[Rfam]
A member of the RNA family "ffh sRNA" from Roseobacter ponti, 52 nucleotides long. The source organism's lineage runs through Bacteria, Pseudomonadati, Alphaproteobacteria, Rhodobacterales and Roseobacter. The match comes from Rfam's covariance-model search (60 bits). It is annotated as a small RNA.
RNA sequence: UCCGUCCGGGAUCGCCCCCCACCAGCGAGUUUCGCCCGUGGGGGCAAACCUG
Dot-bracket structure: ...............(((((((..((((...))))..)))))))........
Numbered sequence: 001u002c003c004g005u006c007c008g009g010g011a012u013c014g015c016c017c018c019c020c021a022c023c024a025g026c027g028a029g030u031u032u033c034g035c036c037c038g039u040g041g042g043g044g045c046a047a048a049c050c051u052g
Stems, first nucleotide, its partner, number of pairs: 016044007025035004